Shown here is a 99-nucleotide RNA from Staphylococcus epidermidis, a member of the family "Fst antitoxin sRNA". The base pairs follow the family's consensus structure, which was predicted with RNAalifold. It is one of the family's seed sequences. Rfam classes the family as an antitoxin RNA. About the family: It is located on the opposite strand of SprA1 sRNA.
RNA sequence: UCCGAUAGUGAGGGGAUUUUUUAGGUGUGGCUAUAGUCGCCUAUUUUUUCUUAUCGUUUCGAUUGCGUAGCCAAUGCGCAAAUAAUGCGACGAUACAGC
Numbered sequence: 001u002c003c004g005a006u007a008g009u010g011a012g013g014g015g016a017u018u019u020u021u022u023a024g025g026u027g028u029g030g031c032u033a034u035a036g037u038c039g040c041c042u043a044u045u046u047u048u049u050c051u052u053a054u055c056g057u058u059u060c061g062a063u064u065g066c067g068u069a070g071c072c073a074a075u076g077c078g079c080a081a082a083u084a085a086u087g088c089g090a091c092g093a094u095a096c097a098g099c
Stems, first nucleotide, its partner, number of pairs: 008096003027040005056091003060087002065079003